SAM riboswitch aptamer (S box leader): a 105-nucleotide RNA sequence from Clostridium kluyveri. Its family is annotated with regulation of gene expression in the Gene Ontology.
RNA sequence: AACUUAUUAAGAGAGGCGGAGGGAAAGGCCCUAUGAAGUCCGGCAACCAGCAUUAUGUAAUGUAUUGGUGCUAAAUCCUGCAGCAUUGUAGCUGAAAGAUGAGGU
Numbered sequence: 001a002a003c004u005u006a007u008u009a010a011g012a013g014a015g016g017c018g019g020a021g022g023g024a025a026a027g028g029c030c031c032u033a034u035g036a037a038g039u040c041c042g043g044c045a046a047c048c049a050g051c052a053u054u055a056u057g058u059a060a061u062g063u064a065u066u067g068g069u070g071c072u073a074a075a076u077c078c079u080g081c082a083g084c085a086u087u088g089u090a091g092c093u094g095a096a097a098g099a100u101g102a103g104g105u
Base pairs, nucleotide, nucleotide: 001105003103004102005101006100007099008098013041015040016039017038021031022030023029026079027078028077042072043071044070045069047068048067050063051062052061076097081094082093083092084091

The source organism's lineage runs through Bacteria, Bacillati, Bacillota, Eubacteriales and Clostridium kluyveri.